[Rfam]
RNA: c-di-AMP riboswitch aptamer (ydaO/yuaA leader)
Organism: Fusobacterium necrogenes
RNA sequence: AAAAGUAAUUUGCUUAAUUUAUAUCUUAACUUUCAGAUAUAAAGCGGGGGACCCAUAAUUCUGGGGCGAAUUUCCUUAGGGAAUAGGAUACUUUUCAAUCCGAGUCCGACAGCUAACCUCGUCAGCAUUGAAAAGAGUUCAG
Dot-bracket structure: ..........((((...(((((((((........)))))))))((((((....((......))(((.....((((....))))..((((........))))...))).........)))))).))))...............